small nucleolar RNA snoR127: a 143-nucleotide sequence from Brassica cretica. Rfam classes the family as a C/D-box small nucleolar RNA. Rfam 15.1 lists 273 matches to the family in 170 species. Pairs were carried over by alignment from the consensus structure, which was predicted with RNAalifold. A search with the family's covariance model found it, with a score of 51 bits.
RNA sequence: CUGGAGUGAAGAUAUGUGCUACUAGAGUUUGCGAGGGUUCUUAAGUUGAGUAAUAUAAUUUGGAGCCUUAAUAGCAAGUAGUGUACCUCUUGUUGUAGCGUGUCUUGGAUGAUAUUACAGAGAUGUUUAAAACUCUGACCAGA
Numbered sequence: 001c002u003g004g005a006g007u008g009a010a011g012a013u014a015u016g017u018g019c020u021a022c023u024a025g026a027g028u029u030u031g032c033g034a035g036g037g038u039u040c041u042u043a044a045g046u047u048g049a050g051u052a053a054u055a056u057a058a059u060u061u062g063g064a065g066c067c068u069u070a071a072u073a074g075c076a077a078g079u080a081g082u083g084u085a086c087c088u089c090u091u092g093u094u095g096u097a098g099c100g101u102g103u104c105u106u107g108g109a110u111g112a113u114a115u116u117a118c119a120g121a122g123a124u125g126u127u128u129a130a131a132a133c134u135c136u137g138a139c140c141a142g143a
Base pairs, nucleotide, nucleotide: 001142002141003140004139